[Rfam]
RNA sequence: AGGUCAUUUCAAAGAGGGCUUUGUGGAGAUGUGAGACCAGAAGCUCUUAACGCUGUGACCAAAAAUUAAGUUCUCCACAGAAUGCUAUAGUCACUAAAUAGUGCUAUUUUUUUUCUUUGAGGAGAUACAAGA
Dot-bracket structure: .((((((......((((((((..(...(........)..)))))))))......))))))...........(((((..((((....((((.((((....)))))))).....))))....))))).......
RNA: Small nucleolar RNA SNORA25
Organism: Orycteropus afer